[Rfam]
RNA: Archaeal large subunit ribosomal RNA, nucleotides 10 to 543
RNA sequence: CUACUGUGCCAACUGGUGGAUGGCUCGGCUUGAGAGCCGACGAAGGACGUGCCAAGCUGCGAAAAGCCUAUGGGAGCCGCACGGAGGCAAAGAACAUAGGAUCUCCGAAUGGGAAUCCCCACCGCAAUUGCUUCGCGCAAUGGGGAACGCCGAGAACUGAAACAUCUUAGUAUCGGCCGGAAAAGAAAGCAAAACCGCGAUGUCGUCAGUAACCGCGAGUGAACGCGACCCAGUCCAAACCGAAGCCCUCACGGGCAAUGUGGUGUACGGACUGACAAUCAGCAUCAGAACGUUUGAUCGAAGUCUCCUGGAACGGAGCGCGACACAGGGUGACAGCCCCGUAGACCAAACAAGUACGUUGUGCGUCAGCUCCAGAGUAGCGGGGGUUGGAUAUCCCUCGUGAACCACGCGGGCAUCGACCGCGAAGACUAAACACUCCUCAAGACCGAUAGCGAACAAGUAGCGUGAGCGAACGCUGAAAAGCACCCCACAAAGGGAGGUGCAAUAGGGCCUGAAAUCAGUUGGCGAUAGAGC
Numbered sequence: 001c002u003a004c005u006g007u008g009c010c011a012a013c014u015g016g017u018g019g020a021u022g023g024c025u026c027g028g029c030u031u032g033a034g035a036g037c038c039g040a041c042g043a044a045g046g047a048c049g050u051g052c053c054a055a056g057c058u059g060c061g062a063a064a065a066g067c068c069u070a071u072g073g074g075a076g077c078c079g080c081a082c083g084g085a086g087g088c089a090a091a092g093a094a095c096a097u098a099g100g101a102u103c104u105c106c107g108a109a110u111g112g113g114a115a116u117c118c119c120c121a122c123c124g125c126a127a128u129u130g131c132u133u134c135g136c137g138c139a140a141u142g143g144g145g146a147a148c149g150c151c152g153a154g155a156a157c158u159g160a161a162a163c164a165u166c167u168u169a170g171u172a173u174c175g176g177c178c179g180g181a182a183a184a185g186a187a188a189g190c191a192a193a194a195c196c197g198c199g200a201u202g203u204c205g206u207c208a209g210u211a212a213c214c215g216c217g218a219g220u221g222a223a224c225g226c227g228a229c230c231c232a233g234u235c236c237a238a239a240c241c242g243a244a245g246c247c248c249u250c251a252c253g254g255g256c257a258a259u260g261u262g263g264u265g266u267a268c269g270g271a272c273u274g275a276c277a278a279u280c281a282g283c284a285u286c287a288g289a290a291c292g293u294u295u296g297a298u299c300g301a302a303g304u305c306u307c308c309u310g311g312a313a314c315g316g317a318g319c320g321c322g323a324c325a326c327a328g329g330g331u332g333a334c335a336g337c338c339c340c341g342u343a344g345a346c347c348a349a350a351c352a353a354g355u356a357c358g359u360u361g362u363g364c365g366u367c368a369g370c371u372c373c374a375g376a377g378u379a380g381c382g383g384g385g386g387u388u389g390g391a392u393a394u395c396c397c398u399c400g401u402g403a404a405c406c407a408c409g410c411g412g413g414c415a416u417c418g419a420c421c422g423c424g425a426a427g428a429c430u431a432a433a434c435a436c437u438c439c440u441c442a443a444g445a446c447c448g449a450u451a452g453c454g455a456a457c458a459a460g461u462a463g464c465g466u467g468a469g470c471g472a473a474c475g476c477u478g479a480a481a482a483g484c485a486c487c488c489c490a491c492a493a494a495g496g497g498a499g500g501u502g503c504a505a506u507a508g509g510g511c512c513u514g515a516a517a518u519c520a521g522u523u524g525g526c527g528a529u530a531g532a533g534c
Stems, first nucleotide, its partner, number of pairs: 007527010022512001023476002027447002029444006035437002045106003048061003067100006076088003111120003127141005148179001149177005159166002189198002202229005212220002232430004240263003245256004273368004283361002286358001298345002303319001305318004322326001328340003380401007408424005463470002